[Rfam]
RNA sequence: CUUGAGCGUGCCCAGCCACAGCGGGUUGCCGGGGUCCCGGCCCUGCCCGUAGGUCGCCAGCAGCGCCUCGGCCUC
Numbered sequence: 001c002u003u004g005a006g007c008g009u010g011c012c013c014a015g016c017c018a019c020a021g022c023g024g025g026u027u028g029c030c031g032g033g034g035u036c037c038c039g040g041c042c043c044u045g046c047c048c049g050u051a052g053g054u055c056g057c058c059a060g061c062a063g064c065g066c067c068u069c070g071g072c073c074u075c
Stems, first nucleotide, its partner, number of pairs: 014026001016024002033069001038065002043060003047056001049054001

Description:
A member of the RNA family "ASpks TB sRNA" from Dactylosporangium vinaceum, 75 nucleotides long. The family's RNA type in Rfam is antisense RNA. The source organism's lineage runs through Bacteria, Actinomycetes, Micromonosporales, Micromonosporaceae and Dactylosporangium.